RNA sequence: CAUUAAGGAACUUCGUCUAAGACCGUCACGUCCGUGUGACACCGCCGAAGCUAGCACUUCCUGUGCG
Numbered sequence: 001c002a003u004u005a006a007g008g009a010a011c012u013u014c015g016u017c018u019a020a021g022a023c024c025g026u027c028a029c030g031u032c033c034g035u036g037u038g039a040c041a042c043c044g045c046c047g048a049a050g051c052u053a054g055c056a057c058u059u060c061c062u063g064u065g066c067g
Stems, first nucleotide, its partner, number of pairs: 011050005017044001025040005054066004

The family of this 67-nucleotide sequence from Pullulanibacillus pueri is "Bacillaceae-1 RNA". NCBI's taxonomy places the organism under Bacteria, Bacillati, Bacillota, Sporolactobacillaceae, Pullulanibacillus.